[Rfam]
RNA sequence: CUUGAGCCCCGAUAGUAGCGGUAUCCUUUCCCUGACUUUUUUGGUCAGGGAAAGAUAAAGCGGAUAGCGGGAACCCAU
Numbered sequence: 001c002u003u004g005a006g007c008c009c010c011g012a013u014a015g016u017a018g019c020g021g022u023a024u025c026c027u028u029u030c031c032c033u034g035a036c037u038u039u040u041u042u043g044g045u046c047a048g049g050g051a052a053a054g055a056u057a058a059a060g061c062g063g064a065u066a067g068c069g070g071g072a073a074c075c076c077a078u
Stems, first nucleotide, its partner, number of pairs: 009070003013066002018061002023056003029051008
RNA: Flavo-1 RNA
Organism: Flavobacterium restrictum